[Rfam]
RNA sequence: CUACUCCCUCUGUCCCAUAAUAUAAGAACGUUUUUGGCACUAUAGUUGUGUCAAAAACGUUCUUAUAUUAUGGACGGAGGGGGUAC
Dot-bracket structure: ..(((.(((((.((.((.((((((((((((((((((((((.......)))))))))))))))))))))).)))).))))).)))..

The record is an 86-nucleotide RNA sequence from Triticum aestivum, which matches "MIR1120/MIR1122 microRNA precursor family" in Rfam. Pairs were carried over by alignment from the consensus structure, which was predicted with RNAalifold.